[Rfam]
RNA sequence: UGGUAGAUGCACCCUGGUUAAAGCCCUAGACUCAAUUGUCAGGGCUUUUUUAU
Numbered sequence: 001u002g003g004u005a006g007a008u009g010c011a012c013c014c015u016g017g018u019u020a021a022a023g024c025c026c027u028a029g030a031c032u033c034a035a036u037u038g039u040c041a042g043g044g045c046u047u048u049u050u051u052a053u
Stems, first nucleotide, its partner, number of pairs: 002013003023045005029040003
Shown here is a 53-nucleotide RNA sequence from Planktothrix agardhii, a member of the family "Nitrogen stress-induced RNA 1". The family's RNA type in Rfam is small RNA. The pairing is the family consensus, mapped onto this sequence. A search with the family's covariance model found it, with a score of 45 bits.